[Rfam]
RNA sequence: AUCUGUGUGGUCUGUGAUGUGUUUCUGUGUCUGAUUUAAAAACAUGAGGCAUUUCACAGUAUUCGUCACUACCCCUGAGACCACAUCGUG
Numbered sequence: 001a002u003c004u005g006u007g008u009g010g011u012c013u014g015u016g017a018u019g020u021g022u023u024u025c026u027g028u029g030u031c032u033g034a035u036u037u038a039a040a041a042a043c044a045u046g047a048g049g050c051a052u053u054u055c056a057c058a059g060u061a062u063u064c065g066u067c068a069c070u071a072c073c074c075c076u077g078a079g080a081c082c083a084c085a086u087c088g089u090g
Base pairs, nucleotide, nucleotide: 003088005086006085007084008083009082010081011080012079
A member of the RNA family "Small nucleolar RNA SNORD70" from Dicentrarchus labrax, 90 nucleotides long. The literature on the family includes a 2001 paper in EMBO J by Huttenhofer et al., "RNomics: an experimental approach that identifies 201 candidates for novel, small, non-messenger RNAs in mouse". Lineage of the source: Eukaryota > Opisthokonta > Actinopterygii > Eurypterygia > Dicentrarchus. Rfam links the family to the GO terms nucleolus and RNA processing. It scores 50 bits against the family's covariance model. The pairing is the family consensus, mapped onto this sequence.